[Rfam]
RNA sequence: CUUGGCCGAGCCCAGCCACAGCGGCGACUGCCGGUCCUGGCCGUAGGUGGCCAGCAGCGCGUGCGCCUC
Numbered sequence: 001c002u003u004g005g006c007c008g009a010g011c012c013c014a015g016c017c018a019c020a021g022c023g024g025c026g027a028c029u030g031c032c033g034g035u036c037c038u039g040g041c042c043g044u045a046g047g048u049g050g051c052c053a054g055c056a057g058c059g060c061g062u063g064c065g066c067c068u069c
Stems, first nucleotide, its partner, number of pairs: 015025003029065003032059002037054003041050003
A member of the RNA family "ASpks TB sRNA" from Nonomuraea solani, 69 nucleotides long. The match comes from Rfam's covariance-model search (67 bits).